A member of the RNA family "Bacterial RNase P class B" from Mycoplasma sp. CAG:956, 349 nucleotides long.
The family's RNA type in Rfam is ribozyme.
For this family Rfam cites "Ribonuclease P: unity and diversity in a tRNA processing ribozyme" (Frank and Pace, Annu Rev Biochem, 1998).
RNA sequence: ACUUAGAAAGACAAAUGCUGGUAUAUUUAUUAUACUUGAGGAAAGUCCGUGCUUACAUAGACCUGAAAUGGCUAUAGGGUUCGUUGCUAAGGCUAAUAACCUUAGGCAGUUUUUAACUGACGGCGUCGAGAUGACCUGUUAAAUGGUUAUAUUAGACAUAAAGUGCCAAAGAGACGAGUUACUUUAGAAAUAAAGUAGGUGGAACGUGGUAAACCCCGCGAGUAAGAAAUCCAAAUUUGGUAGGAGAGUUUCUACAAAGGAAAUAAACGGAGUAGAAAAGUUUAUACAUAAUAGUAUAGAUUAGAUAAAUAUUUGUCACUAGCAUGCUAGUACAGAACACGGCUUACUA
Number, nucleotide and partner (000 for none) at each position: 001a000002c000003u000004u349005a348006g347007a000008a000009a000010g317011a316012c315013a314014a313015a312016u311017g000018c038019u000020g036021g035022u034023a033024u000025a000026u000027u000028u000029a000030u000031u000032a000033u023034a022035c021036u020037u000038g018039a000040g000041g000042a000043a345044a344045g343046u000047c342048c341049g340050u339051g338052c226053u225054u224055a223056c222057a075058u074059a073060g072061a000062c071063c070064u000065g000066a000067a000068a000069u000070g063071g062072c060073u059074a058075u057076a000077g000078g000079g000080u000081u221082c220083g219084u218085u000086g217087c105088u104089a103090a102091g101092g100093c000094u000095a000096a000097u000098a000099a000100c092101c091102u090103u089104a088105g087106g121107c119108a118109g117110u116111u115112u000113u000114u000115a111116a110117c109118u108119g107120a000121c106122g216123g215124c000125g157126u156127c155128g000129a000130g000131a000132u000133g148134a147135c146136c145137u000138g000139u000140u000141a000142a000143a000144u000145g136146g135147u134148u133149a000150u000151a000152u000153u000154a000155g127156a126157c125158a000159u000160a000161a000162a000163g214164u213165g210166c209167c208168a000169a000170a000171g000172a000173g000174a000175c000176g000177a000178g000179u198180u197181a196182c195183u194184u193185u192186a191187g000188a000189a000190a000191u186192a185193a184194a183195g182196u181197a180198g179199g000200u000201g000202g000203a000204a000205c000206g000207u000208g167209g166210u165211a000212a000213a164214c163215c123216c122217c086218g084219c083220g082221a081222g056223u055224a054225a053226g052227a000228a000229a000230u245231c244232c243233a000234a000235a000236u000237u000238u000239g000240g000241u000242a000243g232244g231245a230246g000247a000248g000249u278250u277251u276252c275253u274254a273255c272256a000257a000258a000259g000260g000261a000262a000263a000264u000265a000266a000267a000268c000269g000270g000271a000272g255273u254274a253275g252276a251277a250278a249279a302280g301281u300282u299283u298284a297285u296286a295287c294288a000289u000290a000291a000292u000293a000294g287295u286296a285297u284298a283299g282300a281301u280302u279303a000304g000305a000306u000307a000308a000309a000310u000311a016312u015313u014314u013315g012316u011317c010318a000319c330320u329321a328322g327323c000324a000325u000326g000327c322328u321329a320330g319331u000332a000333c000334a000335g000336a000337a000338c051339a050340c049341g048342g047343c045344u044345u043346a000347c006348u005349a004
Taxonomically the source falls in Mycoplasma (Bacteria, Bacillati, Mycoplasmatota, Mollicutes). It scores 226 bits against the family's covariance model.